The record is a 77-nucleotide RNA sequence from Orthoflavivirus tembusu, which matches "General Flavivirus exoribonuclease-resistant RNA element" in Rfam.
[Rfam]
RNA sequence: CAGUGUCGGGCCACAGGUUUUGUGCCAUUAGCGUGCAGUGCAGCCCGGACAAAAGACACGCCCCAGGAGGACUGGGA
Numbered sequence: 001c002a003g004u005g006u007c008g009g010g011c012c013a014c015a016g017g018u019u020u021u022g023u024g025c026c027a028u029u030a031g032c033g034u035g036c037a038g039u040g041c042a043g044c045c046c047g048g049a050c051a052a053a054a055g056a057c058a059c060g061c062c063c064c065a066g067g068a069g070g071a072c073u074g075g076g077a
Base pairs, nucleotide, nucleotide: 007047008046009045010044011043012024013023014022015021028038029037062076063075064074065073066072
Overview: For this family Rfam cites "The 5' and 3' Untranslated Regions of the Flaviviral Genome" (Ng et al., Viruses, 2017). By type it is a cis-regulatory element. The base pairs follow the family's consensus structure, which was predicted with LocARNA. Rfam's curators write: The exoribonuclease-resistant RNA elements (xrRNA) are described throughout all groups of flaviviruses.